This 72-nucleotide sequence from Ditylenchus dipsaci belongs to the Rfam family "Small nucleolar RNA SNORD58". A reference for the family is Galardi et al. (2002), "Purified box C/D snoRNPs are able to reproduce site-specific 2'-O-methylation of target RNA in vitro", Mol Cell Biol. From the family's description: snoRNA U58 is found in introns 1, 3 and 6 of the ribosomal protein RPL17 gene in humans. The family's consensus secondary structure was predicted with PFOLD. The family's RNA type in Rfam is C/D-box small nucleolar RNA. Gene Ontology terms of the family: RNA processing and nucleolus. The match comes from Rfam's covariance-model search (45 bits).
[Rfam]
RNA sequence: GCGCUAUGAUGUUUUCUCUUAGGACACCUUUGAAAUGAUACAUGAAAAAUGAAAGACGUACGACUGAGCGCU
Numbered sequence: 001g002c003g004c005u006a007u008g009a010u011g012u013u014u015u016c017u018c019u020u021a022g023g024a025c026a027c028c029u030u031u032g033a034a035a036u037g038a039u040a041c042a043u044g045a046a047a048a049a050u051g052a053a054a055g056a057c058g059u060a061c062g063a064c065u066g067a068g069c070g071c072u
Base pairs, nucleotide, nucleotide: 001071002070003069004068